Notes:
FMN riboswitch aptamer (RFN element): a 112-nucleotide RNA from Granulicatella sp. WM01.

RNA sequence: AUCUGUCUUCGGGGUUAGGUGAAAUUCCUUAUCGGCGGUAUAGUCCGCGAGCAAACGCAGAACUGGUGCAAUUCCAGUACCGACAGUAUAGUCUGGAUGGGAGAAGAAAAGA
Numbered sequence: 001a002u003c004u005g006u007c008u009u010c011g012g013g014g015u016u017a018g019g020u021g022a023a024a025u026u027c028c029u030u031a032u033c034g035g036c037g038g039u040a041u042a043g044u045c046c047g048c049g050a051g052c053a054a055a056c057g058c059a060g061a062a063c064u065g066g067u068g069c070a071a072u073u074c075c076a077g078u079a080c081c082g083a084c085a086g087u088a089u090a091g092u093c094u095g096g097a098u099g100g101g102a103g104a105a106g107a108a109a110a111g112a
Base pairs, nucleotide, nucleotide: 004109006107007106008105009104010103017029018028019027031092032091033082034081035048036047037046038045043080044079051058052057062078063077064076065075066074084095085094086093
Taxonomically the source falls in Granulicatella (Bacteria, Bacilli, Lactobacillales, Carnobacteriaceae).